[Rfam]
RNA sequence: GGUCGGAUAAGGCGCUCGCGUCGCAUCCGACACCCCGCGCCGAUGCCUGAUGCGACGCUUACCGCGUCUUAUCAUGCC
Dot-bracket structure: .(((((((..((((....))))..))))))).............((.(((((.(((((.....))))).))))).)).
Annotation:
This 78-nucleotide sequence from Escherichia coli belongs to the Rfam family "Nucleoid-associated noncoding RNA 4 (CssrE)". Rfam describes the family as follows. In E. coli small RNA transcribed from repeated extragenic palindromic element (REP325) called nucleoid-associated ncRNA 4 (nRNA4) collaborates HU protein in condensing the DNA. The secondary structure but not the sequence of the RNA is important in nucleoid condensation. NCBI's taxonomy places the organism under Bacteria, Pseudomonadota, Gammaproteobacteria, Escherichia, Escherichia coli. Rfam links the family to the GO terms protein binding, bacterial nucleoid DNA packaging and bacterial nucleoid.